The record is an 89-nucleotide sequence from Paenalicyclobacillus mengziensis, which matches "c-di-GMP-I riboswitch aptamer" in Rfam. The family's consensus secondary structure is taken from published work. GEMM was predicted in a large-scale screen for bacterial structured RNA regulatory elements. Genes associated with GEMM are involved in a diverse array of functions, including chemotaxis regulation, signal transduction, secretion and chitin.
[Rfam]
RNA sequence: GUAAAUAGAUGGCAAACCUGUGCGAAAGUCAGGGACGCAAAGCCACGUAUCUAAGGACGUAAGGUGUCUAUGAUAGACGGGUUGCCGAG
Numbered sequence: 001g002u003a004a005a006u007a008g009a010u011g012g013c014a015a016a017c018c019u020g021u022g023c024g025a026a027a028g029u030c031a032g033g034g035a036c037g038c039a040a041a042g043c044c045a046c047g048u049a050u051c052u053a054a055g056g057a058c059g060u061a062a063g064g065u066g067u068c069u070a071u072g073a074u075a076g077a078c079g080g081g082u083u084g085c086c087g088a089g
Stems, first nucleotide, its partner, number of pairs: 012038002017033004022029002041083004046079003049074003056068004